[Rfam]
RNA sequence: GGCCCAUCCGAGGGGUGCACCGAACGGUGCUGAGAUGGCGUGGAGCCGGACCCUUGAACCUGAUCCGGGUCAUGCCGGCGUAGGAACGGAACUAGGGUUUCUC
Numbered sequence: 001g002g003c004c005c006a007u008c009c010g011a012g013g014g015g016u017g018c019a020c021c022g023a024a025c026g027g028u029g030c031u032g033a034g035a036u037g038g039c040g041u042g043g044a045g046c047c048g049g050a051c052c053c054u055u056g057a058a059c060c061u062g063a064u065c066c067g068g069g070u071c072a073u074g075c076c077g078g079c080g081u082a083g084g085a086a087c088g089g090a091a092c093u094a095g096g097g098u099u100u101c102u103c
Stems, first nucleotide, its partner, number of pairs: 007090004011054004016048001017030005037047003059084004065078004
Shown here is a 103-nucleotide sequence from Oryzicola mucosus, a member of the family "TPP riboswitch aptamer (THI element)". Lineage of the source: Bacteria > Pseudomonadota > Alphaproteobacteria > Hyphomicrobiales > Oryzicola. Pairs were carried over by alignment from the consensus structure, which is taken from published work. Vitamin B(1) in its active form thiamin pyrophosphate (TPP) is an essential coenzyme that is synthesised by coupling of pyrimidine and thiazole moieties in bacteria. The previously detected thiamin-regulatory element, thi box was extended, resulting in a new, highly conserved RNA secondary structure, the THI element, which is widely distributed in eubacteria and also occurs in some archaea. Analysis of operon structures identified a large number of new candidate thiamin-regulated genes, mostly transporters, in various prokaryotic organisms. The THI element is a riboswitch that directly binds to TPP to regulate gene expression through a variety of mechanisms in archaea, bacteria and eukaryotes. through a variety of mechanisms in archaea, bacteria and eukaryotes. Tandem TPP riboswitches have been reported where both TPP riboswitches respond independently to TPP. The structure of TPP riboswitch has been reported for Escherichia coli and Arabidopsis thaliana.